[Rfam]
RNA sequence: AAAGACCGCUGGGGGUGUUGGAGGCUUCAAAGCCUUCGACUGAGAAAGUCCCUUUGAACCUGAUUGAGGUAAUCCUCGCGCAGGGAAGCCCGCUCCAAAGGAC
Numbered sequence: 001a002a003a004g005a006c007c008g009c010u011g012g013g014g015g016u017g018u019u020g021g022a023g024g025c026u027u028c029a030a031a032g033c034c035u036u037c038g039a040c041u042g043a044g045a046a047a048g049u050c051c052c053u054u055u056g057a058a059c060c061u062g063a064u065u066g067a068g069g070u071a072a073u074c075c076u077c078g079c080g081c082a083g084g085g086a087a088g089c090c091c092g093c094u095c096c097a098a099a100g101g102a103c
Base pairs, nucleotide, nucleotide: 008089009088010087011053012052013051014050016047017040018039019038020037021036022035023034024033025032059084060083061082062081065078066077067076068075

A member of the RNA family "TPP riboswitch aptamer (THI element)" from Limnohabitans sp. Rim28, 103 nucleotides long. It scores 55 bits against the family's covariance model. Lineage of the source: Bacteria > Pseudomonadota > Betaproteobacteria > Comamonadaceae > Limnohabitans.